Annotation: The family of this 76-nucleotide RNA from Branchiostoma floridae is "mir-193 microRNA precursor family". NCBI's taxonomy places the organism under Eukaryota, Opisthokonta, Metazoa, Branchiostomatidae, Branchiostoma. The base pairs follow the family's consensus structure, which was predicted with RNAalifold.
RNA sequence: CUUGUGAACAGUGACUUGUGGGGUCAGUCGGUAGAAAGAGAUUUUCCUACUGGCCUGUCAAGUCGGUGUUCACAUG
Numbered sequence: 001c002u003u004g005u006g007a008a009c010a011g012u013g014a015c016u017u018g019u020g021g022g023g024u025c026a027g028u029c030g031g032u033a034g035a036a037a038g039a040g041a042u043u044u045u046c047c048u049a050c051u052g053g054c055c056u057g058u059c060a061a062g063u064c065g066g067u068g069u070u071c072a073c074a075u076g
Stems, first nucleotide, its partner, number of pairs: 003074006010067001012065002015062004021056004026051002030047001